[Rfam]
RNA: mir-190 microRNA precursor family
Nucleotides: 075
Base pairs, nucleotide, nucleotide: 005071006070007069008068009067011064012063013062014061015060016059017058018057019056020055021054022053023052024051025050029048030047031046032045033044
Number, partner (000 for none) and nucleotide at each position: 001000g002000u003000c004000g005071c006070u007069g008068u009067g010000u011064g012063a013062u014061a015060u016059g017058u018057u019056u020055g021054a022053u023052a024051u025050a026000u027000u028000a029048g030047g031046u032045u033044g034000u035000u036000a037000c038000u039000c040000a041000a042000g043000u044033c045032a046031a047030c048029u049000a050025u051024a052023u053022a054021u055020c056019a057018a058017a059016c060015a061014u062013a063012u064011u065000g066000c067009u068008a069007u070006a071005g072000u073000g074000u075000c